[Rfam]
RNA sequence: UGAAAUUUCAAAGGAGUGGCAUGUGAACACAUAUCCUAUGGUUUCUUCAAAUUUCCAUUGAAACCAUUGAGUUUUGUGUUCUCAGGUCACCCCUUUGAAUCUCCC
Number, nucleotide and partner (000 for none) at each position: 001u000002g000003a000004a000005a000006u000007u099008u098009c000010a000011a095012a094013g093014g092015a000016g090017u089018g088019g087020c000021a000022u000023g083024u000025g081026a080027a079028c078029a077030c076031a075032u000033a000034u000035c000036c000037u000038a000039u000040g000041g000042u000043u000044u000045c000046u000047u000048c000049a000050a000051a000052u000053u000054u000055c000056c000057a000058u000059u000060g000061a000062a000063a000064c000065c000066a000067u000068u000069g000070a000071g000072u000073u000074u000075u031076g030077u029078g028079u027080u026081c025082u000083c023084a000085g000086g000087u019088c018089a017090c016091c000092c014093c013094u012095u011096u000097g000098a008099a007100u000101c000102u000103c000104c000105c000

MIR398 microRNA precursor family: a 105-nucleotide RNA sequence.